RNA sequence: AGGCACGACACGGGGUGCCCGGACCGUCCGGGCUGAGAUCACACCCGCAGAACCUGAUCCGGGUCAUGCCGGCGGAGGGAGUCGCUGUUGCAGCGC
Numbered sequence: 001a002g003g004c005a006c007g008a009c010a011c012g013g014g015g016u017g018c019c020c021g022g023a024c025c026g027u028c029c030g031g032g033c034u035g036a037g038a039u040c041a042c043a044c045c046c047g048c049a050g051a052a053c054c055u056g057a058u059c060c061g062g063g064u065c066a067u068g069c070c071g072g073c074g075g076a077g078g079g080a081g082u083c084g085c086u087g088u089u090g091c092a093g094c095g096c
Stems, first nucleotide, its partner, number of pairs: 006084004011047004016041001017033005053078003059072004

Notes: A member of the RNA family "TPP riboswitch aptamer (THI element)" from alpha proteobacterium BAL199, 96 nucleotides long. From the family's description: Vitamin B(1) in its active form thiamin pyrophosphate (TPP) is an essential coenzyme that is synthesised by coupling of pyrimidine and thiazole moieties in bacteria. Pairs were carried over by alignment from the consensus structure, which is taken from published work. It scores 64 bits against the family's covariance model. NCBI's taxonomy places the organism under Bacteria, Pseudomonadati, Pseudomonadota, Alphaproteobacteria.